[Rfam]
RNA sequence: AGCAAUACUGCACUGGUAAGGUAUGGAUCCGAAGCCUGUUGAACGUUAACAUUGGCUCUCCAAACCCAAUUCGACUCAAUACGCCCCCGGCGUACAGAACGGUAACAUGUCCCUCCAAAUAUCUGAGCCUGGGUAUAUGGGGAAACCAAACCCCAUGGGAAGGUGGAUGAUAUGGCUAGCUAGCGUCUG
Numbered sequence: 001a002g003c004a005a006u007a008c009u010g011c012a013c014u015g016g017u018a019a020g021g022u023a024u025g026g027a028u029c030c031g032a033a034g035c036c037u038g039u040u041g042a043a044c045g046u047u048a049a050c051a052u053u054g055g056c057u058c059u060c061c062a063a064a065c066c067c068a069a070u071u072c073g074a075c076u077c078a079a080u081a082c083g084c085c086c087c088c089g090g091c092g093u094a095c096a097g098a099a100c101g102g103u104a105a106c107a108u109g110u111c112c113c114u115c116c117a118a119a120u121a122u123c124u125g126a127g128c129c130u131g132g133g134u135a136u137a138u139g140g141g142g143a144a145a146c147c148a149a150a151c152c153c154c155a156u157g158g159g160a161a162g163g164u165g166g167a168u169g170a171u172a173u174g175g176c177u178a179g180c181u182a183g184c185g186u187c188u189g
Stems, first nucleotide, its partner, number of pairs: 014097001016095002020066003024062004029055002070189001073186001075185001077183001079181001081093003085102002106174006114167003121164004130149001132147003152159002
Dot-bracket structure: .............[.[[..(((.((((.((.......................))...)))).)))...(..(.(.(.(.(((.{{....)))]].]...}}...((((((..(((....((((.....(.(((..........))).)..((....)).))))))).))))))......).).))..)
drz-agam-2-2 ribozyme: a 189-nucleotide sequence from Anopheles stephensi. The family's consensus secondary structure is taken from published work. For this family Rfam cites "Widespread occurrence of self-cleaving ribozymes" (Webb et al., Science, 2009).